[Rfam]
RNA sequence: GGCCUCCCUCUGUGGGGCGAUCAAUCGUGGGACCCCCCAGAUCAAUUGCCCCACAGAGGGAGGCC
Number, nucleotide and partner (000 for none) at each position: 001g065002g064003c063004c062005u061006c060007c059008c058009u057010c056011u055012g054013u053014g052015g051016g050017g049018c048019g047020a046021u045022c000023a000024a042025u041026c040027g000028u000029g037030g036031g000032a000033c000034c000035c000036c030037c029038c000039a000040g026041a025042u024043c000044a000045a021046u020047u019048g018049c017050c016051c015052c014053a013054c012055a011056g010057a009058g008059g007060g006061a005062g004063g003064c002065c001
About this RNA:
Shown here is a 65-nucleotide sequence from Cnephaeus nilssonii, a member of the family "mir-9242 microRNA precursor family". A search with the family's covariance model found it, with a score of 70 bits.